The family of this 72-nucleotide RNA sequence from Flavobacterium psychrophilum is "Flavo-1 RNA". Rfam classes the family as a small RNA. Rfam 15.1 lists 7,497 matches to the family in 411 species. Lineage of the source: Bacteria > Pseudomonadati > Flavobacteriia > Flavobacteriaceae > Flavobacterium psychrophilum. Rfam's curators put it in the seed alignment. The family's consensus secondary structure is taken from published work.
[Rfam]
RNA sequence: GUUUAGCCCCGAUUGUAGCCGAUAUCCUUUGUGAGGUACGAACAAAGAUAAAGGCGAAAAGCGGGAAAAUGG
Number, nucleotide and partner (000 for none) at each position: 001g000002u000003u000004u000005a000006g000007c000008c000009c064010c063011g062012a000013u060014u059015g000016u000017a000018g055019c054020c000021g000022a000023u050024a049025u048026c047027c000028u000029u045030u044031g043032u042033g000034a000035g000036g000037u000038a000039c000040g000041a000042a032043c031044a030045a029046a000047g026048a025049u024050a023051a000052a000053g000054g019055c018056g000057a000058a000059a014060a013061g000062c011063g010064g009065g000066a000067a000068a000069a000070u000071g000072g000